Rfam assigns this 81-nucleotide RNA sequence from Solanum commersonii to the family "Small nucleolar RNA Z102/R77". Rfam classes the family as a C/D-box small nucleolar RNA. The family has 9 seed sequences and 1,346 matches in Rfam 15.1. On this family, see Chen et al., Nucleic Acids Res 2003: "The high diversity of snoRNAs in plants: identification and comparative study of 120 snoRNA genes from Oryza sativa". Taxonomically the source falls in Solanum (Eukaryota, Viridiplantae, Euphyllophyta, Magnoliopsida). It scores 52 bits against the family's covariance model. The family's consensus secondary structure was predicted with PFOLD.
[Rfam]
RNA sequence: GAAUGAUAUGAUGAACUUCAUACUAGUGAUUGCUGCUGAUAUGAUGGCAUUUUAUCAUGUAUUAGCUCUAGCUGAUCAUUC
Numbered sequence: 001g002a003a004u005g006a007u008a009u010g011a012u013g014a015a016c017u018u019c020a021u022a023c024u025a026g027u028g029a030u031u032g033c034u035g036c037u038g039a040u041a042u043g044a045u046g047g048c049a050u051u052u053u054a055u056c057a058u059g060u061a062u063u064a065g066c067u068c069u070a071g072c073u074g075a076u077c078a079u080u081c
Base pairs, nucleotide, nucleotide: 002080003079004078005077034049035048036047037046